Shown here is a 90-nucleotide RNA from Schumannella sp. 10F1B-5-1, a member of the family "Glycine riboswitch aptamer". The organism belongs to Schumannella, within Bacteria.
RNA sequence: GCACGCGCGGCGGGAGAGUCCGGCUCGACCGGACACCGAAGGAGCAAGCCUCCCCGCCAAUCUCUCAGGUCACAGCACCGCCGCGCGAGG
Number, nucleotide and partner (000 for none) at each position: 001g000002c000003a000004c000005g000006c085007g084008c083009g082010g081011c080012g079013g078014g000015a000016g000017a000018g000019u033020c032021c031022g030023g000024c000025u000026c000027g000028a000029c000030c022031g021032g020033a019034c000035a070036c069037c068038g066039a065040a000041g000042g064043a063044g062045c000046a000047a000048g057049c056050c000051u000052c000053c000054c000055c000056g049057c048058c000059a000060a000061u000062c044063u043064c042065u039066c038067a000068g037069g036070u035071c000072a000073c000074a000075g000076c000077a000078c013079c012080g011081c010082c009083g008084c007085g006086c000087g000088a000089g000090g000